[Rfam]
RNA: Selenocysteine transfer RNA
RNA sequence: GGGGGCGAUGGUACCGGUGUGCCCCACGGGCUGCAAACCCGUUGGCCCUGUCUAAUAAACAGGGAGGAGGUUCGACUCCCCUCGCCCCC
Numbered sequence: 001g002g003g004g005g006c007g008a009u010g011g012u013a014c015c016g017g018u019g020u021g022c023c024c025c026a027c028g029g030g031c032u033g034c035a036a037a038c039c040c041g042u043u044g045g046c047c048c049u050g051u052c053u054a055a056u057a058a059a060c061a062g063g064g065a066g067g068a069g070g071u072u073c074g075a076c077u078c079c080c081c082u083c084g085c086c087c088c089c
Stems, first nucleotide, its partner, number of pairs: 001089008010023005025044001026042005046064005067081001069079002